[Rfam]
RNA sequence: UGCUUAUCAAGAAAGACUGAGGGAUUGGCCCUAUGAUGUCUUAGCAACCUCUACAAUUUAUUGUAAAAGGUGCUAAUUCCACUUCGCUGCAAAGCGAAAAAGAUAAGAU
Numbered sequence: 001u002g003c004u005u006a007u008c009a010a011g012a013a014a015g016a017c018u019g020a021g022g023g024a025u026u027g028g029c030c031c032u033a034u035g036a037u038g039u040c041u042u043a044g045c046a047a048c049c050u051c052u053a054c055a056a057u058u059u060a061u062u063g064u065a066a067a068a069g070g071u072g073c074u075a076a077u078u079c080c081a082c083u084u085c086g087c088u089g090c091a092a093a094g095c096g097a098a099a100a101a102g103a104u105a106a107g108a109u
Stems, first nucleotide, its partner, number of pairs: 003107006013042005021031003026081003043074004048070002052065003078101001083098006

Source information:
SAM riboswitch aptamer (S box leader): a 109-nucleotide RNA sequence from Pedobacter ginsengisoli. The SAM riboswitch is found upstream of a number of genes which code for proteins involved in methionine or cysteine biosynthesis in Gram-positive bacteria. The base pairs follow the family's consensus structure, which is taken from published work.